[Rfam]
RNA sequence: ACUUACAAGUUUGAGGCCACAGCAGAAGCGCUCAUGGUGUGGCUCUGUCAAAUUCUAAUAAAUCUGCAAAUUCUGCU
Numbered sequence: 001a002c003u004u005a006c007a008a009g010u011u012u013g014a015g016g017c018c019a020c021a022g023c024a025g026a027a028g029c030g031c032u033c034a035u036g037g038u039g040u041g042g043c044u045c046u047g048u049c050a051a052a053u054u055c056u057a058a059u060a061a062a063u064c065u066g067c068a069a070a071u072u073c074u075g076c077u
Stems, first nucleotide, its partner, number of pairs: 013045002016043003021077007028040003049066002052063003